[Rfam]
RNA: mir-194 microRNA precursor family
Organism: Denticeps clupeoides
RNA sequence: UGGUUCUUGCUGGUUGUAACAGCAACUCCAUGUGGAAGCUGCAAGUGUUCCAGUGGAGAUACUGUUACCUGCAGCAAGUUC
Dot-bracket structure: .........(((...(((((((...((((((.(((..............)))))))))...)))))))...))).......
Numbered sequence: 001u002g003g004u005u006c007u008u009g010c011u012g013g014u015u016g017u018a019a020c021a022g023c024a025a026c027u028c029c030a031u032g033u034g035g036a037a038g039c040u041g042c043a044a045g046u047g048u049u050c051c052a053g054u055g056g057a058g059a060u061a062c063u064g065u066u067a068c069c070u071g072c073a074g075c076a077a078g079u080u081c
Stems, first nucleotide, its partner, number of pairs: 010074003016068007026058006033052003